[Rfam]
Rfam assigns this 102-nucleotide RNA from Salsuginibacillus halophilus to the family "Purine riboswitch aptamer".
NCBI's taxonomy places the organism under Bacteria, Bacillota, Bacilli, Bacillaceae, Salsuginibacillus.
Rfam describes the family as follows. Riboswitches are metabolite binding domains within certain messenger RNAs that serve as precision sensors for their corresponding targets. Allosteric rearrangement of mRNA structure is mediated by ligand binding, and this results in modulation of gene expression. A class of riboswitches that selectively recognises guanine and becomes saturated at concentrations as low as 5 nM. In Bacillus subtilis, this mRNA motif is located on at least five separate transcriptional units that together encode 17 genes that are mostly involved in purine transport and purine nucleotide biosynthesis.
The family's consensus secondary structure is taken from published work.
RNA sequence: AGGAACAACUAUGACACAGCUCGUAUAACUUGGACAAUAAGGGUCCGAGGUAUCUAUCAGGAACCGUAACAUCCCCUGGCUACGAGCUUUCUGCUGAACAUG
Numbered sequence: 001a002g003g004a005a006c007a008a009c010u011a012u013g014a015c016a017c018a019g020c021u022c023g024u025a026u027a028a029c030u031u032g033g034a035c036a037a038u039a040a041g042g043g044u045c046c047g048a049g050g051u052a053u054c055u056a057u058c059a060g061g062a063a064c065c066g067u068a069a070c071a072u073c074c075c076c077u078g079g080c081u082a083c084g085a086g087c088u089u090u091c092u093g094c095u096g097a098a099c100a101u102g
Stems, first nucleotide, its partner, number of pairs: 018088008029049007058078004063072001